[Rfam]
RNA sequence: CUCUUAUCGAGAGUGGCGGAGGGAAUAGGCCCUACGAAGCCCAGCAACCUACUUGUAAGAAAGGUGCUAAAUCCUACAGAUGAUGAAUCUGACAGAUAAGAC
Dot-bracket structure: .(((((((....(.(((...(((..[[[[)))......))))((((.(((.((....)))..))))))...(]]]](((((.....)))))..)))))))).
Description
A member of the RNA family "SAM riboswitch aptamer (S box leader)" from Amphibacillus xylanus, 102 nucleotides long. The family's consensus secondary structure is taken from published work.